[Rfam]
RNA sequence: GCCGGCGACCUCGGCGUGAUCCCGAACACGAACCUCAAGUGAGGCUAGCGACAGAUGGACGAGUCUGCGCCGUAAGACAAAGUCCUUGCUGCCAAAGUCUGUCGAGAGUACAUGAGGCGGGUAGGUGGAGGGAAAGAUAGC
Number, nucleotide and partner (000 for none) at each position: 001g141002c140003c000004g000005g000006c136007g000008a000009c131010c130011u129012c127013g126014g122015c121016g000017u119018g118019a000020u000021c000022c000023c000024g000025a000026a000027c000028a000029c000030g000031a000032a000033c117034c116035u115036c114037a113038a000039g000040u000041g000042a000043g000044g109045c108046u107047a000048g000049c000050g103051a102052c101053a100054g099055a098056u000057g085058g084059a083060c082061g000062a000063g078064u077065c076066u075067g000068c000069g000070c000071c000072g000073u000074a000075a066076g065077a064078c063079a000080a000081a000082g060083u059084c058085c057086u000087u000088g000089c000090u000091g000092c000093c000094a000095a000096a000097g000098u055099c054100u053101g052102u051103c050104g000105a000106g000107a046108g045109u044110a000111c000112a000113u037114g036115a035116g034117g033118c018119g017120g000121g015122u014123a000124g000125g000126u013127g012128g000129a011130g010131g009132g000133a000134a000135a000136g006137a000138u000139a000140g002141c001
The record is a 141-nucleotide RNA sequence from a Peptococcaceae bacterium, which matches "Group II catalytic intron D1-D4-3" in Rfam. Gene Ontology term of the family: Group II intron splicing. Group II introns are found in rRNA, tRNA and mRNA of organelles in fungi, plants and protists, and also in mRNA in bacteria. The match comes from Rfam's covariance-model search (55 bits).